The family of this 72-nucleotide sequence from Chlorella sorokiniana is "tRNA". The family's RNA type in Rfam is transfer RNA. The source organism's lineage runs through Eukaryota, Viridiplantae, Chlorophyta, Trebouxiophyceae and Chlorella.

RNA sequence: GGGCUCAUCGUCUAACGGAUAAGACACGCGCCUUCUAAGCGUGCAAUGUAGGUUCGAUUCCUACUGAGCUCA
Number, nucleotide and partner (000 for none) at each position: 001g071002g070003g069004c068005u067006c066007a065008u000009c000010g025011u024012c023013u022014a000015a000016c000017g000018g000019a000020u000021a000022a013023g012024a011025c010026a000027c043028g042029c041030g040031c039032c000033u000034u000035c000036u000037a000038a000039g031040c030041g029042u028043g027044c000045a000046a000047u000048g064049u063050a062051g061052g060053u000054u000055c000056g000057a000058u000059u000060c052061c051062u050063a049064c048065u007066g006067a005068g004069c003070u002071c001072a000